About this RNA
Rfam assigns this 194-nucleotide sequence from Schleiferilactobacillus perolens to the family "6S / SsrS RNA". NCBI's taxonomy places the organism under Bacteria, Bacillota, Bacilli, Lactobacillaceae, Schleiferilactobacillus perolens. From the family's description: E. coli 6S RNA was the first non coding RNA to be sequenced, but its function was unknown until recently. It consists of 184 nucleotides that fold into an extended hairpin structure with a large single-stranded internal bulge. The 6S RNA specifically associates with RNA polymerase holoenzyme containing the sigma70 specificity factor.

[Rfam]
RNA sequence: GGUCAUCUUAGGUGUUCGAGUUUUCCUCUUAUCAGGUUGACCGAUCAAGUAACACCACAUUGGGACGGCGAAUUUCUUCUGUGCGUGCAUGCCAUUUCCCUUGGUAGCCCAGAACGGAAGAAUAACUGACCCACCUGCUUAAUAAUAGCGGGUUCAACUGUACGGAAAAAUCAACGGCACCACUAAGAGCCAGC
Numbered sequence: 001g002g003u004c005a006u007c008u009u010a011g012g013u014g015u016u017c018g019a020g021u022u023u024u025c026c027u028c029u030u031a032u033c034a035g036g037u038u039g040a041c042c043g044a045u046c047a048a049g050u051a052a053c054a055c056c057a058c059a060u061u062g063g064g065a066c067g068g069c070g071a072a073u074u075u076c077u078u079c080u081g082u083g084c085g086u087g088c089a090u091g092c093c094a095u096u097u098c099c100c101u102u103g104g105u106a107g108c109c110c111a112g113a114a115c116g117g118a119a120g121a122a123u124a125a126c127u128g129a130c131c132c133a134c135c136u137g138c139u140u141a142a143u144a145a146u147a148g149c150g151g152g153u154u155c156a157a158c159u160g161u162a163c164g165g166a167a168a169a170a171u172c173a174a175c176g177g178c179a180c181c182a183c184u185a186a187g188a189g190c191c192a193g194c
Base pairs, nucleotide, nucleotide: 006188007187008186009185010184011183012180013179014178015177017176018175033160034159036158038156039155040154041152042151062132063131064130066128067127068126071123073122075121076120077119078118079117080116081115087108088107092104093103094102
It is annotated as a non-coding RNA gene. The family's consensus secondary structure is taken from published work.